RNA: U5 spliceosomal RNA
Organism: Salvator merianae
RNA sequence: AUAUUCUGGUUUCUCUUCAAAUUGUAUAAAUCACCUUUUACUAAAGAUUUCUGUGGAGAGGAACAUUUAUGAGUUCUUUUUUUUGUAAAAAAAAUAAAGACAAUUUUU
Dot-bracket structure: ..((((..(((((((((((........(((((.............)))))...)))))))))))......))))...............((((..........)))).
Numbered sequence: 001a002u003a004u005u006c007u008g009g010u011u012u013c014u015c016u017u018c019a020a021a022u023u024g025u026a027u028a029a030a031u032c033a034c035c036u037u038u039u040a041c042u043a044a045a046g047a048u049u050u051c052u053g054u055g056g057a058g059a060g061g062a063a064c065a066u067u068u069a070u071g072a073g074u075u076c077u078u079u080u081u082u083u084u085g086u087a088a089a090a091a092a093a094a095u096a097a098a099g100a101c102a103a104u105u106u107u108u
Stems, first nucleotide, its partner, number of pairs: 003074004009064011028050005090107004